[Rfam]
This 155-nucleotide RNA from Sodalis ligni belongs to the Rfam family "sroC RNA". The literature on the family includes a 2003 paper in Nucleic Acids Res by Vogel et al., "RNomics in Escherichia coli detects new sRNA species and indicates parallel transcriptional output in bacteria". A search with the family's covariance model found it, with a score of 54 bits. Its family is annotated with RNA binding and regulation of RNA stability in the Gene Ontology. By type it is a small RNA. This family consists of a number of bacterial sroC RNA genes of around 160 bases in length. sroC is found in several Enterobacterial species. NCBI's taxonomy places the organism under Bacteria, Pseudomonadati, Pseudomonadota, Enterobacterales, Sodalis.

RNA sequence: ACUAAUAACGACUAUAAGGACGGGCGACUCCCCGUCCUCUCGAUUGCUUGAGGUCCCGGACAGACAGACAUGCCGCGGACGUUCCCCGCGGUAUGGACAUGGUGGUCUUCAUCAAUCUUCAGGGUAGCGAUGCUACCCUUUUUUCCCGGAGUUUU
Numbered sequence: 001a002c003u004a005a006u007a008a009c010g011a012c013u014a015u016a017a018g019g020a021c022g023g024g025c026g027a028c029u030c031c032c033c034g035u036c037c038u039c040u041c042g043a044u045u046g047c048u049u050g051a052g053g054u055c056c057c058g059g060a061c062a063g064a065c066a067g068a069c070a071u072g073c074c075g076c077g078g079a080c081g082u083u084c085c086c087c088g089c090g091g092u093a094u095g096g097a098c099a100u101g102g103u104g105g106u107c108u109u110c111a112u113c114a115a116u117c118u119u120c121a122g123g124g125u126a127g128c129g130a131u132g133c134u135a136c137c138c139u140u141u142u143u144u145c146c147c148g149g150a151g152u153u154u155u
Stems, first nucleotide, its partner, number of pairs: 014152001018037004022032002038123003042120001043116004050109001061095001070094009
The base pairs follow the family's consensus structure, which was predicted with PFOLD.